[Rfam]
RNA sequence: AAUUCCAUUGGUAGGAACAAGGAGAAGCAAAUCUAUUCUAUACUCGACAAGUAUCAAUACGCAAUGAGA
Numbered sequence: 001a002a003u004u005c006c007a008u009u010g011g012u013a014g015g016a017a018c019a020a021g022g023a024g025a026a027g028c029a030a031a032u033c034u035a036u037u038c039u040a041u042a043c044u045c046g047a048c049a050a051g052u053a054u055c056a057a058u059a060c061g062c063a064a065u066g067a068g069a
Stems, first nucleotide, its partner, number of pairs: 003022002008017002043068003051060003
RNA: Plastid-clpP 5UTR RNA
Organism: Turnera subulata